RNA: mir-7 microRNA precursor family
RNA sequence: CGUUUUGGAUGCUGUGGAAGACAAGUGAUUUUGUUGUUGUAACCAUGACAACCAGACAACAAGUCCCAGUCUCCCUCAUCAUUCAACACU
Numbered sequence: 001c002g003u004u005u006u007g008g009a010u011g012c013u014g015u016g017g018a019a020g021a022c023a024a025g026u027g028a029u030u031u032u033g034u035u036g037u038u039g040u041a042a043c044c045a046u047g048a049c050a051a052c053c054a055g056a057c058a059a060c061a062a063g064u065c066c067c068a069g070u071c072u073c074c075c076u077c078a079u080c081a082u083u084c085a086a087c088a089c090u
Stems, first nucleotide, its partner, number of pairs: 002089002005086004010081002013078002016075002019072004025067001027065005033060006